[Rfam]
RNA: LOOT RNA
RNA sequence: GGCCUAAACCGGAGUAAUCCGGCAUGGCAUUAAGACCAACGAAGAUAAAGAACCCAUCAUAUAGGGUCGUCUUCGUUGGCCGUGUCGGGAAACUGGCACGGGGGCUUCGGCCCC
Numbered sequence: 001g002g003c004c005u006a007a008a009c010c011g012g013a014g015u016a017a018u019c020c021g022g023c024a025u026g027g028c029a030u031u032a033a034g035a036c037c038a039a040c041g042a043a044g045a046u047a048a049a050g051a052a053c054c055c056a057u058c059a060u061a062u063a064g065g066g067u068c069g070u071c072u073u074c075g076u077u078g079g080c081c082g083u084g085u086c087g088g089g090a091a092a093c094u095g096g097c098a099c100g101g102g103g104g105c106u107u108c109g110g111c112c113c114c
Stems, first nucleotide, its partner, number of pairs: 002028003009022005036079011052067004081100008101114005